[Rfam]
RNA sequence: UCUUAUAUUUGGCAAAGUAUCCGAAAGGAUACUUACGCAAAGCCACGGGUCUAAGGUAAGUUUACUAUGACAGCCGGGUUGCCACG
Numbered sequence: 001u002c003u004u005a006u007a008u009u010u011g012g013c014a015a016a017g018u019a020u021c022c023g024a025a026a027g028g029a030u031a032c033u034u035a036c037g038c039a040a041a042g043c044c045a046c047g048g049g050u051c052u053a054a055g056g057u058a059a060g061u062u063u064a065c066u067a068u069g070a071c072a073g074c075c076g077g078g079u080u081g082c083c084a085c086g
Stems, first nucleotide, its partner, number of pairs: 012038002017032006041080004046076003049071003056065003

The record is an 86-nucleotide RNA sequence from Pelotomaculum isophthalicicum, which matches "c-di-GMP-I riboswitch aptamer" in Rfam. Lineage of the source: Bacteria > Bacillati > Clostridia > Desulfotomaculaceae > Pelotomaculum isophthalicicum.